A member of the RNA family "U2 spliceosomal RNA" from Bigelowiella natans, 186 nucleotides long. Taxonomically the source falls in Bigelowiella (Eukaryota, Sar, Rhizaria, Cercozoa). Pairs were carried over by alignment from the consensus structure, which is taken from published work. Rfam 15.1 lists 71,512 matches to the family in 2,642 species. From the family's description: U2 is a small nuclear RNA (snRNA) component of the spliceosome (involved in pre-mRNA splicing). It is annotated as a spliceosomal small nuclear RNA.

[Rfam]
RNA sequence: CUACCUAUCUCGGCCUUUUGGCUAAGAUCAAGUGUAGUAUCUGUUCUUAGCAACUUAACCGUUGCUAUGAGAUUCAAAGAAUCUCGUCUCAAUUUUUACUAAGGCUUUACCAAUUAAGGAAUUCGGCCUUGCUAAUCAUUUAUUAUUUAUCUAAUAAAUCAAUAACGUUGGAAAGAUAUAUGAAUU
Numbered sequence: 001c002u003a004c005c006u007a008u009c010u011c012g013g014c015c016u017u018u019u020g021g022c023u024a025a026g027a028u029c030a031a032g033u034g035u036a037g038u039a040u041c042u043g044u045u046c047u048u049a050g051c052a053a054c055u056u057a058a059c060c061g062u063u064g065c066u067a068u069g070a071g072a073u074u075c076a077a078a079g080a081a082u083c084u085c086g087u088c089u090c091a092a093u094u095u096u097u098a099c100u101a102a103g104g105c106u107u108u109a110c111c112a113a114u115u116a117a118g119g120a121a122u123u124c125g126g127c128c129u130u131g132c133u134a135a136u137c138a139u140u141u142a143u144u145a146u147u148u149a150u151c152u153a154a155u156a157a158a159u160c161a162a163u164a165a166c167g168u169u170g171g172a173a174a175g176a177u178a179u180a181u182g183a184a185u186u
Base pairs, nucleotide, nucleotide: 008027009026010025012023013022014021015020048067049066050065051064052063053062069085070084071083072082073081074080075079116140117139119137123135125133126132127131144178145177146176147175148174150172151171152170153169154168155167